[Rfam]
RNA sequence: ACAGUACAAACUGAGCAGACAGCGGAUUUUUCCGUGUGGUCGGGCAUUUUUGCAGCGAAUGACAGACAUUCGUGGGACAGUU
Numbered sequence: 001a002c003a004g005u006a007c008a009a010a011c012u013g014a015g016c017a018g019a020c021a022g023c024g025g026a027u028u029u030u031u032c033c034g035u036g037u038g039g040u041c042g043g044g045c046a047u048u049u050u051u052g053c054a055g056c057g058a059a060u061g062a063c064a065g066a067c068a069u070u071c072g073u074g075g076g077a078c079a080g081u082u
Stems, first nucleotide, its partner, number of pairs: 010081004016076001018041003022035005044053003055073006
The record is an 82-nucleotide RNA sequence from Anaerotignum lactatifermentans, which matches "NiCo (Nickel/Cobalt) riboswitch aptamer" in Rfam.
Clan: NiCo_riboswitches.
Taxonomically the source falls in Anaerotignum lactatifermentans (Bacteria, Bacillota, Anaerotignaceae, Anaerotignum).
On this family, see Furukawa et al., Mol Cell 2015: "Bacterial riboswitches cooperatively bind Ni(2+) or Co(2+) ions and control expression of heavy metal transporters".
Gene Ontology terms of the family: metal ion homeostasis and cobalt ion binding.